Annotation: Rfam assigns this 47-nucleotide sequence from Methylocystis echinoides to the family "ctRNA". The literature on the family includes a 2004 paper in Mol Microbiol by Venkova-Canova et al., "Two discrete elements are required for the replication of a repABC plasmid: an antisense RNA and a stem-loop structure". Rfam 15.1 lists 245 matches to the family in 136 species. It scores 56 bits against the family's covariance model. By type it is an antisense RNA. Rfam's curators write: This family represents a group of ctRNAs (or counter-transcribed RNAs) from p42d and related plasmids. ctRNAs are small, highly structured, antisense sequences which are involved in negative regulation. Members of this family are known to bind to the mRNA of repC causing translational repression. Lineage of the source: Bacteria > Pseudomonadati > Alphaproteobacteria > Methylocystaceae > Methylocystis.
RNA sequence: ACGAGGGCUUCCGGGACGGAGACGUUUCGGGGGCCUUUUUCUUUUGC
Numbered sequence: 001a002c003g004a005g006g007g008c009u010u011c012c013g014g015g016a017c018g019g020a021g022a023c024g025u026u027u028c029g030g031g032g033g034c035c036u037u038u039u040u041c042u043u044u045u046g047c
Stems, first nucleotide, its partner, number of pairs: 005036008015026004